[Rfam]
RNA sequence: CUCCCCGAAAUGUAUUUAGGUACAGCCUCUGCCAAGAGUCUGUAGGGGGUAGGGCACUGGAUGGGCUAGGGCUUCGCAAGAGGUACCAAACCUAACCAAACCUCGAAUACCUAUCAGAUGUUAGCAGGGAGUGAGACUGCGGGUGCUAAGAUUCGUAGUCGAGAGGGAAAAAGCCCAGACCGUCAGCUAAGGUCCCCAAGGCAGUGCUAAGUGGAAAAGGAUGUGGAGUUGCGUAGACAACCAGGAUGUUGGCUUAGAAGCAGCCACCAUUCAAAGAAAGCGUAAUAGCUCACUGGUCAAGCGAUUCUGCGCCGAAAAUUUAACGGGGCUAAAGCACUGCACCGAAGCUACGGAAUGCAGCAAUGCAUUGGUAGGGGAGCAUUCUGUAAGCCUGUGAAGGUGGCACGCGAGUGUUGCUGGAGGUAUCAGAAGAGAAUAU
Numbered sequence: 001c002u003c004c005c006c007g008a009a010a011u012g013u014a015u016u017u018a019g020g021u022a023c024a025g026c027c028u029c030u031g032c033c034a035a036g037a038g039u040c041u042g043u044a045g046g047g048g049g050u051a052g053g054g055c056a057c058u059g060g061a062u063g064g065g066c067u068a069g070g071g072c073u074u075c076g077c078a079a080g081a082g083g084u085a086c087c088a089a090a091c092c093u094a095a096c097c098a099a100a101c102c103u104c105g106a107a108u109a110c111c112u113a114u115c116a117g118a119u120g121u122u123a124g125c126a127g128g129g130a131g132u133g134a135g136a137c138u139g140c141g142g143g144u145g146c147u148a149a150g151a152u153u154c155g156u157a158g159u160c161g162a163g164a165g166g167g168a169a170a171a172a173g174c175c176c177a178g179a180c181c182g183u184c185a186g187c188u189a190a191g192g193u194c195c196c197c198a199a200g201g202c203a204g205u206g207c208u209a210a211g212u213g214g215a216a217a218a219g220g221a222u223g224u225g226g227a228g229u230u231g232c233g234u235a236g237a238c239a240a241c242c243a244g245g246a247u248g249u250u251g252g253c254u255u256a257g258a259a260g261c262a263g264c265c266a267c268c269a270u271u272c273a274a275a276g277a278a279a280g281c282g283u284a285a286u287a288g289c290u291c292a293c294u295g296g297u298c299a300a301g302c303g304a305u306u307c308u309g310c311g312c313c314g315a316a317a318a319u320u321u322a323a324c325g326g327g328g329c330u331a332a333a334g335c336a337c338u339g340c341a342c343c344g345a346a347g348c349u350a351c352g353g354a355a356u357g358c359a360g361c362a363a364u365g366c367a368u369u370g371g372u373a374g375g376g377g378a379g380c381a382u383u384c385u386g387u388a389a390g391c392c393u394g395u396g397a398a399g400g401u402g403g404c405a406c407g408c409g410a411g412u413g414u415u416g417c418u419g420g421a422g423g424u425a426u427c428a429g430a431a432g433a434g435a436a437u438a439u
Stems, first nucleotide, its partner, number of pairs: 001379006011024005026131001027129006037122001038119005043113004052104001053102002058098003062094004069087002071084005135160010165176003180353004185349003191343003200340001202339006219313002223310010240297005246270003251265003271275001276291001280289002354369006380434001382431005390424003399418008

Rfam assigns this 439-nucleotide part of an RNA from uncultured Nitrospirae bacterium MY3-5B to the family "Bacterial large subunit ribosomal RNA". The family's consensus secondary structure is taken from published work. The source organism's lineage runs through Bacteria, Pseudomonadati and Nitrospirota.